This 80-nucleotide RNA sequence from Nannospalax galili belongs to the Rfam family "mir-3473 microRNA precursor family". The organism belongs to Nannospalax, within Eukaryota.
RNA sequence: ACUGCUGAGCCAUCUCUCCAGCCCCAAAAGUCAUUUUUUAAAAAAAGAUUUAUUUUGGGCUGGAGAGAUGACUCAGCAGU
Numbered sequence: 001a002c003u004g005c006u007g008a009g010c011c012a013u014c015u016c017u018c019c020a021g022c023c024c025c026a027a028a029a030g031u032c033a034u035u036u037u038u039u040a041a042a043a044a045a046a047g048a049u050u051u052a053u054u055u056u057g058g059g060c061u062g063g064a065g066a067g068a069u070g071a072c073u074c075a076g077c078a079g080u
Base pairs, nucleotide, nucleotide: 002079003078004077005076006075007074008073009072011070012069013068014067015066016065017064018063019062020061021060022059023058024057
A search with the family's covariance model found it, with a score of 76 bits.